[Rfam]
RNA sequence: UCGAAGCUCCAUCAACAAAUGGAUAACAUCCCAGUCUAUUCUAUAGGAGGUUUUGAAAAGAAAGGAGCAAUAAUCAUUUUCUUGUUCAUCAAGAGGGUGCGAUUGCUCCUUU
Numbered sequence: 001u002c003g004a005a006g007c008u009c010c011a012u013c014a015a016c017a018a019a020u021g022g023a024u025a026a027c028a029u030c031c032c033a034g035u036c037u038a039u040u041c042u043a044u045a046g047g048a049g050g051u052u053u054u055g056a057a058a059a060g061a062a063a064g065g066a067g068c069a070a071u072a073a074u075c076a077u078u079u080u081c082u083u084g085u086u087c088a089u090c091a092a093g094a095g096g097g098u099g100c101g102a103u104u105g106c107u108c109c110u111u112u
Base pairs, nucleotide, nucleotide: 008023009022010021011020012019061112062111063110064109065108066107067106068105069104070103071102075099076098077097079095080094081093082092083091
The record is a 112-nucleotide RNA sequence from Nicotiana attenuata, which matches "Plastid-psbA-1 3UTR RNA" in Rfam. Rfam classes the family as a cis-regulatory element. NCBI's taxonomy places the organism under Eukaryota, Magnoliopsida, Pentapetalae, Nicotianoideae, Nicotiana. Pairs were carried over by alignment from the consensus structure, which was predicted with LocARNA. Plastid psbA-1 is a non-coding RNA (ncRNA) present in plastids. It was identified in inverted repeat sequences in the 3 prime untranslate region (3UTR) of photosystem II quinone-binding protein (psbA). Clan: Plastid-psbA 3UTR RNA clan.